[Rfam]
RNA sequence: GACUGCCCUGAGUGCAGUGGUGUUUACAACUAACUGAUCACAACCAGUUAUAGAUUCCUUUGUUUCUUUUCCACUCCCACUGCUUCUUUUUACUAGCCUUAA
Numbered sequence: 001g002a003c004u005g006c007c008c009u010g011a012g013u014g015c016a017g018u019g020g021u022g023u024u025u026a027c028a029a030c031u032a033a034c035u036g037a038u039c040a041c042a043a044c045c046a047g048u049u050a051u052a053g054a055u056u057c058c059u060u061u062g063u064u065u066c067u068u069u070u071c072c073a074c075u076c077c078c079a080c081u082g083c084u085u086c087u088u089u090u091u092a093c094u095a096g097c098c099u100u101a102a
Stems, first nucleotide, its partner, number of pairs: 001098001003096003010090002014086001016081005022076001028064003032060002
The record is a 102-nucleotide sequence from Otolemur garnettii, which matches "Y RNA" in Rfam. The family's RNA type in Rfam is non-coding RNA gene. Y RNAs are components of the Ro ribonucleoprotein particle (Ro RNP), in association with Ro60 and La proteins. The Y RNAs and Ro60 and La proteins are well conserved, but the function of the Ro RNP is not known. In humans the RNA component can be one of four small RNAs -- hY1, hY3, hY4 and hY5. These small RNAs are predicted to fold into a conserved secondary structure containing three stem structures. The largest of the four, hY1, contains an additional hairpin. This family includes a significant number of annotated pseudogenes and the model is expected to discriminate poorly between real and Y RNA related pseudogenes. Pairs were carried over by alignment from the consensus structure, which is taken from published work.